The record is an 86-nucleotide sequence from Sorghum bicolor, which matches "Small nucleolar RNA snoR27" in Rfam. The literature on the family includes a 2001 paper in RNA by Brown et al., "Multiple snoRNA gene clusters from Arabidopsis". It scores 50 bits against the family's covariance model. Its family is annotated with nucleolus and RNA processing in the Gene Ontology.
[Rfam]
RNA sequence: CUGGAUCGAUGAUGCAACUUUUUUCUGCGUUAUCUUUCUGCAACCUUUUAUGGUGCUGAAGAAGACAUUACCUGCUGAGAUCCGAG
Numbered sequence: 001c002u003g004g005a006u007c008g009a010u011g012a013u014g015c016a017a018c019u020u021u022u023u024u025c026u027g028c029g030u031u032a033u034c035u036u037u038c039u040g041c042a043a044c045c046u047u048u049u050a051u052g053g054u055g056c057u058g059a060a061g062a063a064g065a066c067a068u069u070a071c072c073u074g075c076u077g078a079g080a081u082c083c084g085a086g
Base pairs, nucleotide, nucleotide: 001086002085003083004082005081006080